[Rfam]
RNA sequence: GAGUUUAGUGGUUGUGGCGAGACUAAGAAGUGUGUCGCUUUGAAGUCGUAGGGAAACCGACAGGUCCGCAGCAGCAUCUGUGCUGUGAGGGACGGGGUCUUAAUAGGGCCUGGAGUCACAGCCCUAAAACCCGAAGCCGGUCGAUCUAGCCCUGGGUAGGAUGAAGUCGCUCUUACGAGUGAUGGAGGUCCGCAGGGGUGUUGUCGUGCGAAACAUUCCUCUAACCUGGGGUUAGUGGUGAAAGGCCAAUCAAGGCCGGUGACAGCUGGUU
Numbered sequence: 001g002a003g004u005u006u007a008g009u010g011g012u013u014g015u016g017g018c019g020a021g022a023c024u025a026a027g028a029a030g031u032g033u034g035u036c037g038c039u040u041u042g043a044a045g046u047c048g049u050a051g052g053g054a055a056a057c058c059g060a061c062a063g064g065u066c067c068g069c070a071g072c073a074g075c076a077u078c079u080g081u082g083c084u085g086u087g088a089g090g091g092a093c094g095g096g097g098u099c100u101u102a103a104u105a106g107g108g109c110c111u112g113g114a115g116u117c118a119c120a121g122c123c124c125u126a127a128a129a130c131c132c133g134a135a136g137c138c139g140g141u142c143g144a145u146c147u148a149g150c151c152c153u154g155g156g157u158a159g160g161a162u163g164a165a166g167u168c169g170c171u172c173u174u175a176c177g178a179g180u181g182a183u184g185g186a187g188g189u190c191c192g193c194a195g196g197g198g199u200g201u202u203g204u205c206g207u208g209c210g211a212a213a214c215a216u217u218c219c220u221c222u223a224a225c226c227u228g229g230g231g232u233u234a235g236u237g238g239u240g241a242a243a244g245g246c247c248a249a250u251c252a253a254g255g256c257c258g259g260u261g262a263c264a265g266c267u268g269g270u271u
Base pairs, nucleotide, nucleotide: 005127006126007125008124010123011122012121013120014119015118016117017116018115021047022046023045024044027041028040029039030038051058052057064093065092066091067090071086072085073084074083075082076081096110097109098108099107130269131268133266137259138258139257140256141255142254146235147234148233149232150231151230152229153228154227155226156225157223159191160190161189162188166183167182168181169180170179171178172177195220196219197218198217200216201215203214204213237247238246239245
RNA: Archaeal large subunit ribosomal RNA, nucleotides 701 to 971
Organism: Methanothermobacter thermautotrophicus